The family of this 72-nucleotide sequence from Upupa epops is "mir-1 microRNA precursor family".
From the family's description: This family represents the microRNA (miRNA) mir-1 family. miRNAs are transcribed as ~70nt precursors (modelled here) and subsequently processed by the Dicer enzyme to give a ~22nt product. In this case the mature sequence comes from the 3' arm of the precursor.
RNA sequence: ACUGUGUCUACAUGCUUCUUAAAUACCAGAGAAUUCUUAAAUCUCUGGAUUUAAGAAGCAUGUGGAUUUAAG
Numbered sequence: 001a002c003u004g005u006g007u008c009u010a011c012a013u014g015c016u017u018c019u020u021a022a023a024u025a026c027c028a029g030a031g032a033a034u035u036c037u038u039a040a041a042u043c044u045c046u047g048g049a050u051u052u053a054a055g056a057a058g059c060a061u062g063u064g065g066a067u068u069u070a071a072g
Stems, first nucleotide, its partner, number of pairs: 007066016026048005
It scores 46 bits against the family's covariance model. Gene Ontology terms of the family: miRNA-mediated post-transcriptional gene silencing and RISC complex. Rfam 15.1 lists 4,474 matches to the family in 965 species. The literature on the family includes a 2001 paper in Science by Lee and Ambros, "An extensive class of small RNAs in Caenorhabditis elegans".